RNA sequence: CGUGCGUCGCGCUGAUUCCCCCCAAUCGCCCGACGCACGUGGCGGCACCGGUUCCCCCCAACCGGUGCCGCCCCUC
Numbered sequence: 001c002g003u004g005c006g007u008c009g010c011g012c013u014g015a016u017u018c019c020c021c022c023c024a025a026u027c028g029c030c031c032g033a034c035g036c037a038c039g040u041g042g043c044g045g046c047a048c049c050g051g052u053u054c055c056c057c058c059c060a061a062c063c064g065g066u067g068c069c070g071c072c073c074c075u076c
Stems, first nucleotide, its partner, number of pairs: 002038008011029002041072012
RNA: 6C RNA